Shown here is a 177-nucleotide RNA from Streptomyces alkaliphilus, a member of the family "c-di-AMP riboswitch aptamer (ydaO/yuaA leader)". This family represents a conserved RNA structure found upstream of the ydaO and yuaA genes in Bacillus subtilis and related genes in other bacteria. Rfam links the family to the GO terms regulation of gene expression and cyclic-di-AMP binding.
RNA sequence: GCCACCGCAGCACCAUCCGCAAGACAGGAGCGGGGGACCCACUUUCCGCCGGUCACAGACCGGCUAGGGGUGAAGUCGCCCGUCCGGCCGGGACCUCCCGUCCCGACCGGGCGACGACCGGGCACCUUUCCGGCCCGAACCCGACAGCUCACCUCGUAGGCGUCGGAGAGGAGCACA
Numbered sequence: 001g002c003c004a005c006c007g008c009a010g011c012a013c014c015a016u017c018c019g020c021a022a023g024a025c026a027g028g029a030g031c032g033g034g035g036g037a038c039c040c041a042c043u044u045u046c047c048g049c050c051g052g053u054c055a056c057a058g059a060c061c062g063g064c065u066a067g068g069g070g071u072g073a074a075g076u077c078g079c080c081c082g083u084c085c086g087g088c089c090g091g092g093a094c095c096u097c098c099c100g101u102c103c104c105g106a107c108c109g110g111g112c113g114a115c116g117a118c119c120g121g122g123c124a125c126c127u128u129u130c131c132g133g134c135c136c137g138a139a140c141c142c143g144a145c146a147g148c149u150c151a152c153c154u155c156g157u158a159g160g161c162g163u164c165g166g167a168g169a170g171g172a173g174c175a176c177a
Base pairs, nucleotide, nucleotide: 003162005160006159011028030157031156032155033154034153035152040067068142069141070140076117077116078115120136121135122134123133